About this RNA:
mir-399 microRNA precursor family: a 125-nucleotide RNA sequence from Triticum urartu. On this family, see Jones-Rhoades and Bartel, Mol Cell 2004: "Computational Identification of Plant MicroRNAs and Their Targets, Including a Stress-Induced miRNA". Rfam describes the family as follows. mir-399 was identified in both Arabidopsis thaliana and Oryza sativa computationally and was later experimentally verified. mir-399 is thought to target mRNAs coding for a phosphatase transporter. The mature sequence is excised from the 3' arm of the hairpin.

[Rfam]
RNA sequence: GUGAGAAUCACAGUGCAGUUCUCCUCUGGCAUGGAUGCCAAUGUAGCAGGUCCUGGACGAUGAGUCAAUGGCCUAUGCUAUCUAUCAUCGUCCCUGCCAAAGGAGAAUUGCCCUGCCAUUCAGCA
Numbered sequence: 001g002u003g004a005g006a007a008u009c010a011c012a013g014u015g016c017a018g019u020u021c022u023c024c025u026c027u028g029g030c031a032u033g034g035a036u037g038c039c040a041a042u043g044u045a046g047c048a049g050g051u052c053c054u055g056g057a058c059g060a061u062g063a064g065u066c067a068a069u070g071g072c073c074u075a076u077g078c079u080a081u082c083u084a085u086c087a088u089c090g091u092c093c094c095u096g097c098c099a100a101a102g103g104a105g106a107a108u109u110g111c112c113c114u115g116c117c118a119u120u121c122a123g124c125a
Base pairs, nucleotide, nucleotide: 005121006120007119008118011115012114013113015111016110017109018108019107021105022104023103024102027099028098029097030096031095033093034092035091036090037089